ffh sRNA: a 52-nucleotide RNA from Pseudaestuariivita atlantica. A reference for the family is Meyer et al. (2009), "Identification of candidate structured RNAs in the marine organism 'Candidatus Pelagibacter ubique'", BMC Genomics. The match comes from Rfam's covariance-model search (56 bits). NCBI's taxonomy places the organism under Bacteria, Pseudomonadota, Alphaproteobacteria, Paracoccaceae, Pseudaestuariivita. It is annotated as a small RNA. Pairs were carried over by alignment from the consensus structure, which is taken from published work.
RNA sequence: UCCAUGCGGGAUCGCCACCAGUCAGCGCGUCGCGCCCACUGGUGCGUUUGUC
Numbered sequence: 001u002c003c004a005u006g007c008g009g010g011a012u013c014g015c016c017a018c019c020a021g022u023c024a025g026c027g028c029g030u031c032g033c034g035c036c037c038a039c040u041g042g043u044g045c046g047u048u049u050g051u052c
Base pairs, nucleotide, nucleotide: 016044017043018042019041020040021039022038025035026034027033028032